[Rfam]
RNA sequence: UCAGAUGGCCGGACGGCCGCAGGUCCUACCUGAGGAAAGUCCGGGCUCCCUGGCGGCAGGGUGCCGGGUAACCCCCGGCCGGAGCGAUCCGAGGGAAAGCGCCACAGAGAUCGAACCGCCUCGGUCCGCCGAGGUAAGGGUGAAAAGGUGCGGUAAGAGCGCACCGCCGCAUCGGCAACGCUGCGGGCAUGGCAAGCCCCACCUGGAGCAAAACCGAAUAGGGAUGGGAGGGGCCCUUGGGCCCGGGGGCGCCGCCACCCCUUACCCAUCCGGGUUGGUUGCUUGAGGCCGCCCGCAAGGGCGCGUCCCAGAUGAAUGGUCGUCCUCCGCCACGGCAGAGACAGAACCCGGCUUACGCGGCCGUCUGACACU
Numbered sequence: 001u002c003a004g005a006u007g008g009c010c011g012g013a014c015g016g017c018c019g020c021a022g023g024u025c026c027u028a029c030c031u032g033a034g035g036a037a038a039g040u041c042c043g044g045g046c047u048c049c050c051u052g053g054c055g056g057c058a059g060g061g062u063g064c065c066g067g068g069u070a071a072c073c074c075c076c077g078g079c080c081g082g083a084g085c086g087a088u089c090c091g092a093g094g095g096a097a098a099g100c101g102c103c104a105c106a107g108a109g110a111u112c113g114a115a116c117c118g119c120c121u122c123g124g125u126c127c128g129c130c131g132a133g134g135u136a137a138g139g140g141u142g143a144a145a146a147g148g149u150g151c152g153g154u155a156a157g158a159g160c161g162c163a164c165c166g167c168c169g170c171a172u173c174g175g176c177a178a179c180g181c182u183g184c185g186g187g188c189a190u191g192g193c194a195a196g197c198c199c200c201a202c203c204u205g206g207a208g209c210a211a212a213a214c215c216g217a218a219u220a221g222g223g224a225u226g227g228g229a230g231g232g233g234c235c236c237u238u239g240g241g242c243c244c245g246g247g248g249g250c251g252c253c254g255c256c257a258c259c260c261c262u263u264a265c266c267c268a269u270c271c272g273g274g275u276u277g278g279u280u281g282c283u284u285g286a287g288g289c290c291g292c293c294c295g296c297a298a299g300g301g302c303g304c305g306u307c308c309c310a311g312a313u314g315a316a317u318g319g320u321c322g323u324c325c326u327c328c329g330c331c332a333c334g335g336c337a338g339a340g341a342c343a344g345a346a347c348c349c350g351g352c353u354u355a356c357g358c359g360g361c362c363g364u365c366u367g368a369c370a371c372u
Stems, first nucleotide, its partner, number of pairs: 001368010011356001012324007020032005037354003041351005046208004054254004059204005064078005079093001080091004094199002099197002101193003116139002118135007147165006166188001167186005173180002212280004222271006245262005287307003290303005
This 372-nucleotide RNA from Parvularcula bermudensis belongs to the Rfam family "Bacterial RNase P class A". By type it is a ribozyme. The sequence is in the family's curated seed alignment. The source organism's lineage runs through Bacteria, Pseudomonadota, Alphaproteobacteria, Parvularcula and Parvularcula bermudensis. Rfam's curators write: Ribonuclease P (RNase P) is a ubiquitous endoribonuclease, found in archaea, bacteria and eukarya as well as chloroplasts and mitochondria.